[Rfam]
RNA sequence: UCCCUGCUUGACCUCCCUGAGCGGGCCUUGGGCAACCAAGGGUUUCUGCGCCCGGCCUUUGGCCGGGCUUUUUUUC
Numbered sequence: 001u002c003c004c005u006g007c008u009u010g011a012c013c014u015c016c017c018u019g020a021g022c023g024g025g026c027c028u029u030g031g032g033c034a035a036c037c038a039a040g041g042g043u044u045u046c047u048g049c050g051c052c053c054g055g056c057c058u059u060u061g062g063c064c065g066g067g068c069u070u071u072u073u074u075u076c
Stems, first nucleotide, its partner, number of pairs: 003025006026041006050068008
The family of this 76-nucleotide RNA sequence from Comamonas denitrificans is "Burkholderia RNA 7 (anti-hemB)". It scores 61 bits against the family's covariance model. On this family, see Weinberg et al., Nucleic Acids Res 2007: "Identification of 22 candidate structured RNAs in bacteria using the CMfinder comparative genomics pipeline". Lineage of the source: Bacteria > Pseudomonadati > Pseudomonadota > Betaproteobacteria > Comamonas. Rfam describes the family as follows. This RNA motif was identified by computational search in b-proteobacteria Burkholderia.